[Rfam]
RNA sequence: GGGAUCUGCGAGGAACAUUCGUAUAGUACGAGAGGAACUCCGAAUGGGUGCCGCUGGUGUAUCGGUUGUCCGACAGGGCAAAUGCCGAGCAGCUACGCACCACUGGGUAAGAGCUGAAUGCAUCUAAGCUCGAAACCACCCUCAAAAAGAGAUCCCACUGAGAACGCUCAUACAAGAUGAGAGAGAUAGACUCGGGGUGUCCGCAUCGAGGCAACGAGAUGUUGAGCCCGCGAGCACUAACCGUUCGAGCCA
Numbered sequence: 001g002g003g004a005u006c007u008g009c010g011a012g013g014a015a016c017a018u019u020c021g022u023a024u025a026g027u028a029c030g031a032g033a034g035g036a037a038c039u040c041c042g043a044a045u046g047g048g049u050g051c052c053g054c055u056g057g058u059g060u061a062u063c064g065g066u067u068g069u070c071c072g073a074c075a076g077g078g079c080a081a082a083u084g085c086c087g088a089g090c091a092g093c094u095a096c097g098c099a100c101c102a103c104u105g106g107g108u109a110a111g112a113g114c115u116g117a118a119u120g121c122a123u124c125u126a127a128g129c130u131c132g133a134a135a136c137c138a139c140c141c142u143c144a145a146a147a148a149g150a151g152a153u154c155c156c157a158c159u160g161a162g163a164a165c166g167c168u169c170a171u172a173c174a175a176g177a178u179g180a181g182a183g184a185g186a187u188a189g190a191c192u193c194g195g196g197g198u199g200u201c202c203g204c205a206u207c208g209a210g211g212c213a214a215c216g217a218g219a220u221g222u223u224g225a226g227c228c229c230g231c232g233a234g235c236a237c238u239a240a241c242c243g244u245u246c247g248a249g250c251c252a
Stems, first nucleotide, its partner, number of pairs: 001156007010143004016046006023039001047101005055095003062088005067080005104138003111131005162246004167181004187239003191234004195229003203222005210215001
RNA: Archaeal large subunit ribosomal RNA, nucleotides 2659 to 2910